[Rfam]
RNA: MIR2118 microRNA precursor family
RNA sequence: GCUAGGAAGAGGAAGAAAGAGAGGGCCUAAGAGAAAUGGGAAUGAGAACAUUGAGGAAAGCCUAACUUAUUGGUCCUUCACCUCUUGUGUUGAGGUGGAAAUCUAGUUUGGUAUUUCCUGAUGCCUCUCAUCCCUAUUGUUCUUAAGCACUCCUUUCUCUUCCUUUUUUGC
Numbered sequence: 001g002c003u004a005g006g007a008a009g010a011g012g013a014a015g016a017a018a019g020a021g022a023g024g025g026c027c028u029a030a031g032a033g034a035a036a037u038g039g040g041a042a043u044g045a046g047a048a049c050a051u052u053g054a055g056g057a058a059a060g061c062c063u064a065a066c067u068u069a070u071u072g073g074u075c076c077u078u079c080a081c082c083u084c085u086u087g088u089g090u091u092g093a094g095g096u097g098g099a100a101a102u103c104u105a106g107u108u109u110g111g112u113a114u115u116u117c118c119u120g121a122u123g124c125c126u127c128u129c130a131u132c133c134c135u136a137u138u139g140u141u142c143u144u145a146a147g148c149a150c151u152c153c154u155u156u157c158u159c160u161u162c163c164u165u166u167u168u169u170g171c
Base pairs, nucleotide, nucleotide: 009162010161011160012159013158015156016155017154021152022151023150026147028145029144030143031142032141033140035138037136038135039134040133042131043130044129045128046127047126049123050122051121053119055118056117057116058115059114060112061111